[Rfam]
A member of the RNA family "Qrr RNA" from Aliivibrio fischeri, 106 nucleotides long.
Taxonomically the source falls in Aliivibrio (Bacteria, Pseudomonadati, Gammaproteobacteria, Vibrionaceae).
The family has 30 seed sequences and 148 matches in Rfam 15.1.
From the family's description: This family represents a set of small RNAs (the Qrr RNAs) that are thought to be involved in the regulation of quorum sensing in Vibrio species. It is believed that these RNAs, guided by a protein, Hfq, can mediate the destabilisation of the quorum-sensing master regulators LuxR/HapR mRNAs.
RNA sequence: UGACCCUUUAAGCCAAAGGGUCACCUAGCCAACUGACGUUGUUAGUGAAAUUUACUUUCACAUGAACAAUAAAGCCAACCGGGAUAUUGCGGUUGGCUUCUUUUUU
Number, nucleotide and partner (000 for none) at each position: 001u023002g022003a021004c020005c019006c018007u000008u000009u000010a000011a000012g000013c000014c000015a000016a000017a000018g006019g005020g004021u003022c002023a001024c000025c000026u000027a000028g000029c000030c000031a000032a000033c000034u000035g000036a000037c000038g000039u072040u071041g070042u069043u000044a000045g061046u060047g059048a058049a057050a056051u000052u000053u000054a000055c000056u050057u049058u048059c047060a046061c045062a000063u000064g000065a000066a000067c000068a000069a042070u041071a040072a039073a000074g000075c096076c095077a094078a093079c092080c091081g090082g000083g000084a000085u000086a000087u000088u000089g000090c081091g080092g079093u078094u077095g076096g075097c000098u000099u000100c000101u000102u000103u000104u000105u000106u000